[Rfam]
RNA sequence: CUGUCCCGUGGUAGAAGAUGUGCGACGGAGUCCGCCACGGAGACAGCUUGUUGGAGACGUCCAUCGCACCGCACAUUAAGUGCGGCCCGAGAACGGGAGAGAACGCUGAGCGUUACAAC
Numbered sequence: 001c002u003g004u005c006c007c008g009u010g011g012u013a014g015a016a017g018a019u020g021u022g023c024g025a026c027g028g029a030g031u032c033c034g035c036c037a038c039g040g041a042g043a044c045a046g047c048u049u050g051u052u053g054g055a056g057a058c059g060u061c062c063a064u065c066g067c068a069c070c071g072c073a074c075a076u077u078a079a080g081u082g083c084g085g086c087c088c089g090a091g092a093a094c095g096g097g098a099g100a101g102a103a104c105g106c107u108g109a110g111c112g113u114u115a116c117a118a119c
Base pairs, nucleotide, nucleotide: 001046002045003044004043005042006040007039008038009037010036011035069085070084071083072082073081074080
Shown here is a 119-nucleotide RNA sequence from Corynebacterium sp. HMSC08D02, a member of the family "atpB RNA". It is annotated as a cis-regulatory element. NCBI's taxonomy places the organism under Bacteria, Actinomycetota, Actinomycetes, Mycobacteriales, Corynebacterium. The base pairs follow the family's consensus structure, which is taken from published work.